Shown here is a 90-nucleotide RNA sequence from Sphingomonas sp. Root720, a member of the family "Glycine riboswitch aptamer". From the family's description: This family represents the bacterial glycine riboswitch. Pairs were carried over by alignment from the consensus structure.
RNA sequence: GCUGGCCACGCGGGAGAACGUCGGGGAGACCCGGCCACCGAAGGAGCAACCGCCCCGGAAUCUCUCAGGUCAAAGGACCGCGUGGCAAGG
Numbered sequence: 001g002c003u004g005g006c007c008a009c010g011c012g013g014g015a016g017a018a019c020g021u022c023g024g025g026g027a028g029a030c031c032c033g034g035c036c037a038c039c040g041a042a043g044g045a046g047c048a049a050c051c052g053c054c055c056c057g058g059a060a061u062c063u064c065u066c067a068g069g070u071c072a073a074a075g076g077a078c079c080g081c082g083u084g085g086c087a088a089g090g
Stems, first nucleotide, its partner, number of pairs: 006085008020035004037070003040066002044064003050058002
Dot-bracket structure: .....((((((((......((((........)))).(((((..(((...((.....))...))))).))).......)))))))).....